[Rfam]
RNA sequence: GUCUCUGGUGAUGAUCGGAAAAAUAAAACUUUCGUUCUACCGAGGGUAGUAACCACCCCAUGUGGAAAAAUUUUUGGAGACCUGAACUGAGGAGAC
Numbered sequence: 001g002u003c004u005c006u007g008g009u010g011a012u013g014a015u016c017g018g019a020a021a022a023a024u025a026a027a028a029c030u031u032u033c034g035u036u037c038u039a040c041c042g043a044g045g046g047u048a049g050u051a052a053c054c055a056c057c058c059c060a061u062g063u064g065g066a067a068a069a070a071u072u073u074u075u076g077g078a079g080a081c082c083u084g085a086a087c088u089g090a091g092g093a094g095a096c
Base pairs, nucleotide, nucleotide: 003094004093005092006091
Annotation
A member of the RNA family "Small nucleolar RNA Z159/U59" from Vanilla planifolia, 96 nucleotides long. Rfam classes the family as a C/D-box small nucleolar RNA. The family's consensus secondary structure was predicted with PFOLD. Its family is annotated with nucleolus and RNA processing in the Gene Ontology.